[Rfam]
RNA sequence: AAAUAUAUAUAAAUGUUCACUUGUAUAAAUCUGGCAAUAUGGGCUAGAUGUUUCUAUCUAACUACCGUAAAUAGUUGCGGACUAUAAGUGUUCUAUACUUAUUA
Numbered sequence: 001a002a003a004u005a006u007a008u009a010u011a012a013a014u015g016u017u018c019a020c021u022u023g024u025a026u027a028a029a030u031c032u033g034g035c036a037a038u039a040u041g042g043g044c045u046a047g048a049u050g051u052u053u054c055u056a057u058c059u060a061a062c063u064a065c066c067g068u069a070a071a072u073a074g075u076u077g078c079g080g081a082c083u084a085u086a087a088g089u090g091u092u093c094u095a096u097a098c099u100u101a102u103u104a
Base pairs, nucleotide, nucleotide: 018090019089020088021087022086023085024084025083029049030048031047032046033045034044035043058080059077060076061075062074063073064072
Shown here is a 104-nucleotide sequence from Maledivibacter halophilus, a member of the family "Purine riboswitch aptamer".